A member of the RNA family "Small nucleolar RNA SNORA61" from Cebus imitator, 127 nucleotides long.
Pairs were carried over by alignment from the consensus structure, which was predicted with PFOLD.
Its family is annotated with RNA processing and nucleolus in the Gene Ontology.
Taxonomically the source falls in Cebus (Eukaryota, Vertebrata, Teleostomi, Dipnotetrapodomorpha).
About the family: ACA61 is a member of the H/ACA class of snoRNA that guide the sites of modification of uridines to pseudouridines.

RNA sequence: ACCCUCUGGUUCCUGUUCCUGUUGGAUCUGAACGCUGGUCUUGGUGGUUGUAAAAGGAGGCCAAGUAACACUGAAGGUGGCCUCACAGUGUUGUAGACUGGCAUAUAGUUUCCACAAUGGUUCAAAU
Numbered sequence: 001a002c003c004c005u006c007u008g009g010u011u012c013c014u015g016u017u018c019c020u021g022u023u024g025g026a027u028c029u030g031a032a033c034g035c036u037g038g039u040c041u042u043g044g045u046g047g048u049u050g051u052a053a054a055a056g057g058a059g060g061c062c063a064a065g066u067a068a069c070a071c072u073g074a075a076g077g078u079g080g081c082c083u084c085a086c087a088g089u090g091u092u093g094u095a096g097a098c099u100g101g102c103a104u105a106u107a108g109u110u111u112c113c114a115c116a117a118u119g120g121u122u123c124a125a126a127u
Base pairs, nucleotide, nucleotide: 003060004059005058006057007056019047020046021045022044023043025040026039027038028037077115078114079113080112094108